[Rfam]
RNA sequence: UGUUCGCUGUUCCUAGAGUCAGCUGUCAGUGCUGAACUGUGGGUUUUUGCAAACAGGCGCACAUUGAUUCUGUGAUUUGAUGCAUGGCUUCUGCUCCUCAUGCAGCCUUCCAUAGCCCGGUUGCGGAUACAAUG
Numbered sequence: 001u002g003u004u005c006g007c008u009g010u011u012c013c014u015a016g017a018g019u020c021a022g023c024u025g026u027c028a029g030u031g032c033u034g035a036a037c038u039g040u041g042g043g044u045u046u047u048u049g050c051a052a053a054c055a056g057g058c059g060c061a062c063a064u065u066g067a068u069u070c071u072g073u074g075a076u077u078u079g080a081u082g083c084a085u086g087g088c089u090u091c092u093g094c095u096c097c098u099c100a101u102g103c104a105g106c107c108u109u110c111c112a113u114a115g116c117c118c119g120g121u122u123g124c125g126g127a128u129a130c131a132a133u134g
Stems, first nucleotide, its partner, number of pairs: 001059004007049001012043004017038001019035005070126001072124006082116002084113004091105004
Background
The record is a 134-nucleotide RNA sequence from Dissostichus mawsoni, which matches "Small nucleolar RNA SNORA84" in Rfam. It is annotated as an H/ACA-box small nucleolar RNA. The organism belongs to Dissostichus, within Eukaryota.